[Rfam]
RNA sequence: AGCUGGUCCGAAAGUAGUGAGUUUUCUCAAUCGAUUAAUUACAGAUCAAUCUCCUUGUUCUACUCUCUCCUCCCUUCUCACUACUGCACUUGACUAAUCCGAA
Number, nucleotide and partner (000 for none) at each position: 001a000002g098003c000004u096005g095006g094007u093008c092009c000010g091011a090012a000013a000014g087015u086016a082017g081018u080019g079020a078021g077022u000023u000024u000025u000026c000027u000028c000029a000030a000031u000032c000033g065034a064035u000036u000037a061038a000039u000040u000041a000042c000043a000044g000045a000046u000047c000048a000049a000050u000051c000052u000053c000054c000055u000056u000057g000058u000059u000060c000061u037062a000063c000064u034065c033066u000067c000068u000069c000070c000071u000072c000073c000074c000075u000076u000077c021078u020079c019080a018081c017082u016083a000084c000085u000086g015087c014088a000089c000090u011091u010092g008093a007094c006095u005096a004097a000098u002099c000100c000101g000102a000103a000

The family of this 103-nucleotide RNA from Carlito syrichta is "Y RNA". The organism belongs to Carlito, within Eukaryota. Rfam 15.1 lists 26,986 matches to the family in 650 species. It is annotated as a non-coding RNA gene.